Record summary
The record is an 85-nucleotide RNA sequence from Limnochorda pilosa, which matches "c-di-GMP-I riboswitch aptamer" in Rfam. About the family: GEMM was predicted in a large-scale screen for bacterial structured RNA regulatory elements. It scores 74 bits against the family's covariance model. Pairs were carried over by alignment from the consensus structure, which is taken from published work.
[Rfam]
RNA sequence: GACGCGAAAGGGCAAACCCGGCGAAAGCCGGGGACGCAAAGCUCCGGCGCUUCGAGGGCGACCUCAUGCGGGCCGAGCUGCCGAA
Numbered sequence: 001g002a003c004g005c006g007a008a009a010g011g012g013c014a015a016a017c018c019c020g021g022c023g024a025a026a027g028c029c030g031g032g033g034a035c036g037c038a039a040a041g042c043u044c045c046g047g048c049g050c051u052u053c054g055a056g057g058g059c060g061a062c063c064u065c066a067u068g069c070g071g072g073c074c075g076a077g078c079u080g081c082c083g084a085a
Stems, first nucleotide, its partner, number of pairs: 012037002017032006040079004045075003048070003055064003